The family of this 137-nucleotide sequence from Paralcaligenes ureilyticus is "Manganese Mn2+ riboswitch aptamer (yybP-ykoY)". On this family, see Argaman et al., Curr Biol 2001: "Novel small RNA-encoding genes in the intergenic regions of Escherichia coli". NCBI's taxonomy places the organism under Bacteria, Pseudomonadati, Betaproteobacteria, Burkholderiales, Paralcaligenes.

RNA sequence: CUUUCCGUCAUUGGGGAGUAGCUAUUUUCGGGCAUUGUCCGGGAAGCUUGCGUCAACAUACUUGGUGAUUCGUUCGCCAUGGCGCAAGCGGCGUUGGGUGUCAGUCCUGCGCCAUGCGAGACCUUUGGCCGCGAUGC
Numbered sequence: 001c002u003u004u005c006c007g008u009c010a011u012u013g014g015g016g017a018g019u020a021g022c023u024a025u026u027u028u029c030g031g032g033c034a035u036u037g038u039c040c041g042g043g044a045a046g047c048u049u050g051c052g053u054c055a056a057c058a059u060a061c062u063u064g065g066u067g068a069u070u071c072g073u074u075c076g077c078c079a080u081g082g083c084g085c086a087a088g089c090g091g092c093g094u095u096g097g098g099u100g101u102c103a104g105u106c107c108u109g110c111g112c113c114a115u116g117c118g119a120g121a122c123c124u125u126u127g128g129c130c131g132c133g134a135u136g137c
Base pairs, nucleotide, nucleotide: 026043027042046089047088048087049086050085051084052083053082054081055080063079064078065077066076067075091137092136093135094134095133096132